[Rfam]
Nucleotides: 091
Base pairs, nucleotide, nucleotide: 001091003089004088005087006086007085008084013043014042015041016040017039021032022031023030026079027078028077029076044071045070046069047068049067050066052063053062054061075083
Number, partner (000 for none) and nucleotide at each position: 001091u002000a003089u004088c005087c006086a007085u008084c009000c010000g011000g012000a013043g014042c015041g016040g017039c018000u019000g020000a021032g022031a023030g024000a025000c026079c027078u028077g029076g030023c031022u032021c033000g034000u035000u036000g037000a038000c039017g040016c041015c042014g043013c044071a045070g046069c047068a048000a049067c050066c051000a052063c053062c054061g055000a056000u057000c058000g059000u060000u061054c062053g063052g064000c065000a066050g067049g068047u069046g070045c071044u072000a073000a074000a075083g076029c077028c078027a079026g080000g081000a082000c083075c084008g085007a086006u087005g088004g089003g090000a091001g
Rfam assigns this 91-nucleotide RNA sequence from Pseudonocardiaceae bacterium YIM PH 21723 to the family "SAM riboswitch aptamer (S box leader)". The SAM riboswitch is found upstream of a number of genes which code for proteins involved in methionine or cysteine biosynthesis in Gram-positive bacteria. Lineage of the source: Bacteria > Bacillati > Actinomycetota > Actinomycetes > Pseudonocardiaceae.